Description
MIR164 microRNA precursor family: a 66-nucleotide RNA from Vitis rotundifolia.

RNA sequence: UGGAGAAGGGGAGCACGUGCAGAGCAGAUUAGAAUUUGUGAACUGCACGUGCCCUGCUUCUCCAAC
Numbered sequence: 001u002g003g004a005g006a007a008g009g010g011g012a013g014c015a016c017g018u019g020c021a022g023a024g025c026a027g028a029u030u031a032g033a034a035u036u037u038g039u040g041a042a043c044u045g046c047a048c049g050u051g052c053c054c055u056g057c058u059u060c061u062c063c064a065a066c
Stems, first nucleotide, its partner, number of pairs: 001064008010055002013052010028035002